The family of this 80-nucleotide sequence from Heterocephalus glaber is "small Cajal body-specific RNA 18". The source organism's lineage runs through Eukaryota, Metazoa, Chordata, Teleostomi and Heterocephalus. From the family's description: scaRNAs are a specific class of small nuclear RNAs which localise to the Cajal bodies and guide the modification of RNA polymerase II transcribed spliceosomal RNAs U1, U2, U4, U5 and U12. This C/D box domain U91 (also known as U4-8) was identified by Darzacq and is predicted to guide the 2'O-ribose methylation of U4 snRNA C8. Its family is annotated with Cajal body, RNA processing and nucleolus in the Gene Ontology.

RNA sequence: UGGCCAAUGAUGACUAGACCACUGCGCAAUCUGAGUUCUGGGAACCAGGUGAUGGAGUGUGUUGUAACAGACUGAGGCCA
Numbered sequence: 001u002g003g004c005c006a007a008u009g010a011u012g013a014c015u016a017g018a019c020c021a022c023u024g025c026g027c028a029a030u031c032u033g034a035g036u037u038c039u040g041g042g043a044a045c046c047a048g049g050u051g052a053u054g055g056a057g058u059g060u061g062u063u064g065u066a067a068c069a070g071a072c073u074g075a076g077g078c079c080a
Stems, first nucleotide, its partner, number of pairs: 002079004038048004